[Rfam]
RNA sequence: AAGUAAAUCCUUUCAAUGAAAGAUACACUUUUUUAUGGAAAUAAAACAAUACUAAAACUAAAUGAAGGAGCAAUACCGACCCUCUUAUUCUAUCAAGAGGGUCGGUAUUUCUCCUUC
Numbered sequence: 001a002a003g004u005a006a007a008u009c010c011u012u013u014c015a016a017u018g019a020a021a022g023a024u025a026c027a028c029u030u031u032u033u034u035a036u037g038g039a040a041a042u043a044a045a046a047c048a049a050u051a052c053u054a055a056a057a058c059u060a061a062a063u064g065a066a067g068g069a070g071c072a073a074u075a076c077c078g079a080c081c082c083u084c085u086u087a088u089u090c091u092a093u094c095a096a097g098a099g100g101g102u103c104g105g106u107a108u109u110u111c112u113c114c115u116u117c
Base pairs, nucleotide, nucleotide: 008023009022011020012019064117065116066115067114068113069112070111072109073108074107075106076105078103079102080101082099083098084097085096086095
RNA: Plastid-psbA-1 3UTR RNA
Organism: Papaver somniferum